[Rfam]
RNA sequence: GAAACGGGAAGCCGGCACUAGGCAACUGGGUAAGACCGGCGCCCCUGCCCCGCAAGGGACGGGUACU
Numbered sequence: 001g002a003a004a005c006g007g008g009a010a011g012c013c014g015g016c017a018c019u020a021g022g023c024a025a026c027u028g029g030g031u032a033a034g035a036c037c038g039g040c041g042c043c044c045c046u047g048c049c050c051c052g053c054a055a056g057g058g059a060c061g062g063g064u065a066c067u
Base pairs, nucleotide, nucleotide: 011040012039013038014037015036018029019028020027021026044063045062046061047060049058050057051056